About this RNA: The record is an 83-nucleotide sequence from Smithella sp. SCADC, which matches "c-di-GMP-I-GGC riboswitch aptamer" in Rfam. The source organism's lineage runs through Bacteria, Thermodesulfobacteriota, Syntrophia, Smithellaceae and Smithella. The literature on the family includes a 2012 paper in Biochemistry by Smith et al., "Structural and biochemical characterization of linear dinucleotide analogues bound to the c-di-GMP-I aptamer". The base pairs follow the family's consensus structure, which is taken from published work.
RNA sequence: UCAGAUCAAGCCAAAAUCCGGGUAACCGGAUGACGGAAAGCCGCGGGUCCACUAAAUGUUGAGGGAUAGCCGGGUUGCCUGAG
Numbered sequence: 001u002c003a004g005a006u007c008a009a010g011c012c013a014a015a016a017u018c019c020g021g022g023u024a025a026c027c028g029g030a031u032g033a034c035g036g037a038a039a040g041c042c043g044c045g046g047g048u049c050c051a052c053u054a055a056a057u058g059u060u061g062a063g064g065g066a067u068a069g070c071c072g073g074g075u076u077g078c079c080u081g082a083g
Base pairs, nucleotide, nucleotide: 001083003080004079011036012035016031017030018029019028020027021026034069039076040075041074042073044072045071046070047067048066049065

A search with the family's covariance model found it, with a score of 63 bits.